About this RNA
This 114-nucleotide sequence from Bacillus sp. SG-1 belongs to the Rfam family "SAM riboswitch aptamer (S box leader)".
[Rfam]
RNA sequence: CUCUUAUCGAGAGCGGCGGAGGGAUUAGGCCCGAUGAAGCCCGGCAACCUACAGGCAGUUUCUGCUUGGAAAGGUGCUACAUCCUACAGGCUCAAUGAGUCUGGAAGAUAAGAG
Number, nucleotide and partner (000 for none) at each position: 001c114002u113003c112004u111005u110006a109007u108008c107009g000010a000011g000012a000013g042014c000015g041016g040017c039018g000019g000020a000021g032022g031023g030024a000025u000026u086027a085028g084029g083030c023031c022032c021033g000034a000035u000036g000037a000038a000039g017040c016041c015042c013043g078044g077045c076046a075047a000048c074049c073050u070051a000052c068053a067054g066055g065056c064057a000058g000059u000060u000061u000062c000063u000064g056065c055066u054067u053068g052069g000070a050071a000072a000073g049074g048075u046076g045077c044078u043079a000080c000081a000082u106083c029084c028085u027086a026087c103088a102089g101090g100091c099092u098093c000094a000095a000096u000097g000098a092099g091100u090101c089102u088103g087104g000105a000106a082107g008108a007109u006110a005111a004112g003113a002114g001

Rfam links the family to the GO term regulation of gene expression.